[Rfam]
RNA sequence: UUGAACCACUAGGGGUGCGUAAUGCUGAGACAGGCGGUGGCCUGAUCCCUUUGAACCUGAUCUGGGUGAUACCAGCGGAGGGAAGUGGAGCCGGAGUUUU
Numbered sequence: 001u002u003g004a005a006c007c008a009c010u011a012g013g014g015g016u017g018c019g020u021a022a023u024g025c026u027g028a029g030a031c032a033g034g035c036g037g038u039g040g041c042c043u044g045a046u047c048c049c050u051u052u053g054a055a056c057c058u059g060a061u062c063u064g065g066g067u068g069a070u071a072c073c074a075g076c077g078g079a080g081g082g083a084a085g086u087g088g089a090g091c092c093g094g095a096g097u098u099u100u
Stems, first nucleotide, its partner, number of pairs: 006088005011050004016044001017025003032043004056081003062075004
Annotation: The record is a 100-nucleotide RNA from Alkalicoccus urumqiensis, which matches "TPP riboswitch aptamer (THI element)" in Rfam. The source organism's lineage runs through Bacteria, Bacillati, Bacillota, Bacillaceae and Alkalicoccus. About the family: Vitamin B(1) in its active form thiamin pyrophosphate (TPP) is an essential coenzyme that is synthesised by coupling of pyrimidine and thiazole moieties in bacteria. It scores 77 bits against the family's covariance model. Its family is annotated with thiamine pyrophosphate binding in the Gene Ontology.